[Rfam]
RNA sequence: ACUAUGGAGAGUAUAAGAAUUUAUGAGUAAAUACAAUUUAUUGAAAGUAUGCUCGUUGAAGUAGUAA
Numbered sequence: 001a002c003u004a005u006g007g008a009g010a011g012u013a014u015a016a017g018a019a020u021u022u023a024u025g026a027g028u029a030a031a032u033a034c035a036a037u038u039u040a041u042u043g044a045a046a047g048u049a050u051g052c053u054c055g056u057u058g059a060a061g062u063a064g065u066a067a
Stems, first nucleotide, its partner, number of pairs: 001065005009054005022049003030042003
Rfam assigns this 67-nucleotide RNA sequence to the family "RAGATH-18 RNA". From the family's description: Actinobacteria, Firmicutes, Fusobacteria, Thermotogae (1 example). By type it is a small RNA. The family's consensus secondary structure is taken from published work.